[Rfam]
RNA: ALIL pseudoknot
RNA sequence: GGCUUUUUUUCGCCCAGGCGGAGCUCGACCGCAAACUGAGGAAAUGAUCGCGUACAUUGACGCUCACAAGGAGCGCUACGGGGUCGAGCCGAUCUGCGCGGUAUAGCUGAUCGCCCCG
Numbered sequence: 001g002g003c004u005u006u007u008u009u010u011c012g013c014c015c016a017g018g019c020g021g022a023g024c025u026c027g028a029c030c031g032c033a034a035a036c037u038g039a040g041g042a043a044a045u046g047a048u049c050g051c052g053u054a055c056a057u058u059g060a061c062g063c064u065c066a067c068a069a070g071g072a073g074c075g076c077u078a079c080g081g082g083g084u085c086g087a088g089c090c091g092a093u094c095u096g097c098g099c100g101g102u103a104u105a106g107c108u109g110a111u112c113g114c115c116c117c118g
Base pairs, nucleotide, nucleotide: 018032019031020030021029079118080117081116082115083114090113091112093110094109096107097106